[Rfam]
Nucleotides: 069
Base pairs, nucleotide, nucleotide: 002056003055004054005053006052007051008050011022012021013020014019028048029047030046031045032044037068038067039066040065
Number, partner (000 for none) and nucleotide at each position: 001000g002056g003055c004054a005053c006052c007051c008050a009000u010000a011022g012021c013020c014019c015000g016000a017000c018000g019014g020013g021012g022011c023000g024000a025000c026000a027000a028048g029047c030046g031045c032044g033000g034000c035000a036000g037068c038067u039066c040065u041000c042000c043000c044032c045031g046030c047029g048028c049000u050008u051007g052006g053005g054004u055003g056002c057000a058000g059000c060000c061000c062000u063000g064000g065040a066039g067038a068037g069000g

This 69-nucleotide RNA from Aquimonas voraii belongs to the Rfam family "int-alpA RNA". Rfam classes the family as a small RNA. Rfam describes the family as follows. Acidobacteria (1 example), Planctomycetes (1 example), Proteobacteria.